[Rfam]
RNA sequence: AGCAUAACAAUGGCUGAAUUUUAAGCAAUAAUUGCGCAACAUUAUGUUCUUGGAUCUUUAACUAAGAUGGAAAAGAGAUAAGAGAAAGAUAAUUCGAUGUAAGAAAAGAGAAUGGUGCGUCCGAGUAGACUCGAACUACCGACCCCCACCA
Numbered sequence: 001a002g003c004a005u006a007a008c009a010a011u012g013g014c015u016g017a018a019u020u021u022u023a024a025g026c027a028a029u030a031a032u033u034g035c036g037c038a039a040c041a042u043u044a045u046g047u048u049c050u051u052g053g054a055u056c057u058u059u060a061a062c063u064a065a066g067a068u069g070g071a072a073a074a075g076a077g078a079u080a081a082g083a084g085a086a087a088g089a090u091a092a093u094u095c096g097a098u099g100u101a102a103g104a105a106a107a108g109a110g111a112a113u114g115g116u117g118c119g120u121c122c123g124a125g126u127a128g129a130c131u132c133g134a135a136c137u138a139c140c141g142a143c144c145c146c147c148a149c150c151a
Base pairs, nucleotide, nucleotide: 024048025047026046030042062075063074113148114147115146117144122141123140125139126138127137128136

A member of the RNA family "Bacterial antisense RNA HPnc0260" from Providencia sneebia, 151 nucleotides long. A reference for the family is Sharma et al. (2010), "The primary transcriptome of the major human pathogen Helicobacter pylori", Nature.